[Rfam]
Annotation:
The record is a 119-nucleotide RNA from Paenibacillus faecis, which matches "pan motif" in Rfam. The base pairs follow the family's consensus structure, which is taken from published work. By type it is a cis-regulatory element. A search with the family's covariance model found it, with a score of 41 bits.

RNA sequence: GAGGCGAUAUCGAGGUUUCGAAUUGCACUCAUGAGGGCACAAUACAGCUGCAUGAACAUUUAGGGUUCCACAAAUGACGUUGGAUUCUGCUCUGAGCCGAAGAGGACCGAGACAGAAAG
Numbered sequence: 001g002a003g004g005c006g007a008u009a010u011c012g013a014g015g016u017u018u019c020g021a022a023u024u025g026c027a028c029u030c031a032u033g034a035g036g037g038c039a040c041a042a043u044a045c046a047g048c049u050g051c052a053u054g055a056a057c058a059u060u061u062a063g064g065g066u067u068c069c070a071c072a073a074a075u076g077a078c079g080u081u082g083g084a085u086u087c088u089g090c091u092c093u094g095a096g097c098c099g100a101a102g103a104g105g106a107c108c109g110a111g112a113c114a115g116a117a118a119g
Stems, first nucleotide, its partner, number of pairs: 001030003004026005010021002087115003090111003094107001097105002